[Rfam]
Rfam assigns this 271-nucleotide sequence from Ammoniphilus sp. CFH 90114 to the family "Bacterial large signal recognition particle RNA". Its family is annotated with signal recognition particle, plasma membrane targeting and SRP-dependent cotranslational protein targeting to membrane, signal sequence recognition in the Gene Ontology. NCBI's taxonomy places the organism under Bacteria, Bacillati, Bacilli, Paenibacillaceae, Ammoniphilus.
RNA sequence: CCGUGCUGAAACGGGGAGGUAGCGGUUCCUUGUCACCUGCAAUCCGCUAUAGCAGGGUUGAUGCUUUACCUGAGGGACGGUCAUGUGGAGCCUGGGGUAUGGAACUUGUGAUGAAGAUCGCAGCACCUUUGCAACAAAGACGCUCUUGAACGGGUCAGGUCCGGAAGGAAGCAGCCAUAAGAGAGAUGUGCUCUGUGUGCAGAGGAGACGGGUCGGAGCAAGGGAAAUACAUUCCGUCUGGAUGAACGAUUUCGAAGGUAUAAGCGCACGG
Numbered sequence: 001c002c003g004u005g006c007u008g009a010a011a012c013g014g015g016g017a018g019g020u021a022g023c024g025g026u027u028c029c030u031u032g033u034c035a036c037c038u039g040c041a042a043u044c045c046g047c048u049a050u051a052g053c054a055g056g057g058u059u060g061a062u063g064c065u066u067u068a069c070c071u072g073a074g075g076g077a078c079g080g081u082c083a084u085g086u087g088g089a090g091c092c093u094g095g096g097g098u099a100u101g102g103a104a105c106u107u108g109u110g111a112u113g114a115a116g117a118u119c120g121c122a123g124c125a126c127c128u129u130u131g132c133a134a135c136a137a138a139g140a141c142g143c144u145c146u147u148g149a150a151c152g153g154g155u156c157a158g159g160u161c162c163g164g165a166a167g168g169a170a171g172c173a174g175c176c177a178u179a180a181g182a183g184a185g186a187u188g189u190g191c192u193c194u195g196u197g198u199g200c201a202g203a204g205g206a207g208a209c210g211g212g213u214c215g216g217a218g219c220a221a222g223g224g225a226a227a228u229a230c231a232u233u234c235c236g237u238c239u240g241g242a243u244g245a246a247c248g249a250u251u252u253c254g255a256a257g258g259u260a261u262a263a264g265c266g267c268a269c270g271g
Base pairs, nucleotide, nucleotide: 001271002270003269004268005267006266010059011058012057013031014030015029016028017027018026020024036056037055038054039053040052065262067260068259069258070257071256074253075252076251077250081245082244083243084242086240087239088238089237094232097230098229099228100227105223106222107220108219109218116214117213118212119211123209126205127204128203129202130201131200132197133196135195136194138192139191143185144184145183146182147181153176154175155174160169161168162167